The family of this 130-nucleotide sequence from Selaginella moellendorffii is "Small nucleolar RNA snoR77". Rfam links the family to the GO terms RNA processing and nucleolus. The family's RNA type in Rfam is H/ACA-box small nucleolar RNA. A search with the family's covariance model found it, with a score of 62 bits.
RNA sequence: AGGCAGCCUGCCGCAGCGAUCAAUCUGCGAGCACGGCGUUCAUCUGCCCAGAGAUGCAAAUUUCUUGCUUUUCUGACUCGCGGAGAGCUUUUGGCUCAGUGAGGCAAGUCAAGUAACACUCGAAAACAUU
Numbered sequence: 001a002g003g004c005a006g007c008c009u010g011c012c013g014c015a016g017c018g019a020u021c022a023a024u025c026u027g028c029g030a031g032c033a034c035g036g037c038g039u040u041c042a043u044c045u046g047c048c049c050a051g052a053g054a055u056g057c058a059a060a061u062u063u064c065u066u067g068c069u070u071u072u073c074u075g076a077c078u079c080g081c082g083g084a085g086a087g088c089u090u091u092u093g094g095c096u097c098a099g100u101g102a103g104g105c106a107a108g109u110c111a112a113g114u115a116a117c118a119c120u121c122g123a124a125a126a127c128a129u130u
Stems, first nucleotide, its partner, number of pairs: 002040003007036002009033003012029005062124003067119001069116001074111005080105002085097003